[Rfam]
RNA sequence: CAGGCGCGCACGGGAGAGCGUGCGGGGCCGGUCCCCGUGCCGCCGAAGGAGCAACCGCCCCGGAAUCUCUCAGGCAGAAGGACCGUGCGGGUCAU
Numbered sequence: 001c002a003g004g005c006g007c008g009c010a011c012g013g014g015a016g017a018g019c020g021u022g023c024g025g026g027g028c029c030g031g032u033c034c035c036c037g038u039g040c041c042g043c044c045g046a047a048g049g050a051g052c053a054a055c056c057g058c059c060c061c062g063g064a065a066u067c068u069c070u071c072a073g074g075c076a077g078a079a080g081g082a083c084c085g086u087g088c089g090g091g092u093c094a095u
Stems, first nucleotide, its partner, number of pairs: 007089007020040007042075003045071002049069003055063002